[Rfam]
RNA: RtT RNA
RNA sequence: GAAAUUUGUGGCACAUACAGGAUGAGAACCGUACCCGAAGGGAGGUUCGAGCCGAGCGUAGCGAGACAACGCCGGAGCCUGCGACGGCAGCCCGCAGGGCAAGCGCGAAGCGCGCAGUAAUCCUAUACGUCCCACCA
Dot-bracket structure: ...............((.(((.(..........((..........(.((...((.......)).......((((..........))))....)).).))....................).))).))..........
Numbered sequence: 001g002a003a004a005u006u007u008g009u010g011g012c013a014c015a016u017a018c019a020g021g022a023u024g025a026g027a028a029c030c031g032u033a034c035c036c037g038a039a040g041g042g043a044g045g046u047u048c049g050a051g052c053c054g055a056g057c058g059u060a061g062c063g064a065g066a067c068a069a070c071g072c073c074g075g076a077g078c079c080u081g082c083g084a085c086g087g088c089a090g091c092c093c094g095c096a097g098g099g100c101a102a103g104c105g106c107g108a109a110g111c112g113c114g115c116a117g118u119a120a121u122c123c124u125a126u127a128c129g130u131c132c133c134a135c136c137a
Stems, first nucleotide, its partner, number of pairs: 016127002019124003023120001034099002046096001048094002053063002071088004